RNA sequence: UGCCGGCUUUCCAACAGCCGGGGUUACUGAAGAGGCACACCUUCAUUGCCGGACGUGCGGUCGGGUUCUCCCACCAAUCAAUGGCAGACAAAGCGAAUUGAAGCCUAGGCAGGCUUCGGUUCAUCGUUCGCGCAUGAUGCGCAUGCUUGGUUC
Dot-bracket structure: (.((((((.......)))))).)..........((((.........))))......(((........................(.........).......(((((....)))))...............)))....................